[Rfam]
Shown here is a 144-nucleotide RNA from Hibiscus syriacus, a member of the family "small nucleolar RNA snoR134". On this family, see Chen and Wu, Nucleic Acids Res 2009: "Mining small RNA sequencing data: a new approach to identify small nucleolar RNAs in Arabidopsis". The source organism's lineage runs through Eukaryota, Tracheophyta, Magnoliopsida, Malvaceae and Hibiscus. The family has 5 seed sequences and 792 matches in Rfam 15.1. The match comes from Rfam's covariance-model search (70 bits).
RNA sequence: CUGUACGAACUCUCCCAGGCUUUUCUGAAUCUCUAUUUAUGAAGAUCAAAGCCCCAAUGUUGCUAGAUUCAUGCCGUUUCACGUGUUGCGGAAUAGCUUUCGCUUAUUGACCGGCUCUUCUGUGUCAAUUCGGCGGCUAAAUCU
Number, nucleotide and partner (000 for none) at each position: 001c000002u000003g063004u062005a061006c000007g000008a000009a060010c059011u000012c000013u000014c000015c000016c000017a000018g053019g052020c051021u050022u048023u000024u045025c044026u043027g000028a000029a000030u000031c000032u000033c000034u000035a000036u000037u000038u000039a000040u000041g000042a000043a026044g025045a024046u000047c000048a022049a000050a021051g020052c019053c018054c000055c000056a000057a000058u000059g010060u009061u005062g004063c003064u000065a000066g000067a000068u000069u000070c000071a000072u000073g137074c136075c135076g134077u133078u132079u000080c000081a000082c000083g000084u127085g126086u000087u124088g123089c122090g121091g120092a119093a000094u000095a000096g115097c114098u000099u000100u000101c000102g000103c000104u000105u000106a000107u000108u000109g000110a000111c000112c000113g000114g097115c096116u000117c000118u000119u092120c091121u090122g089123u088124g087125u000126c085127a084128a000129u000130u000131c000132g078133g077134c076135g075136g074137c073138u000139a000140a000141a000142u000143c000144u000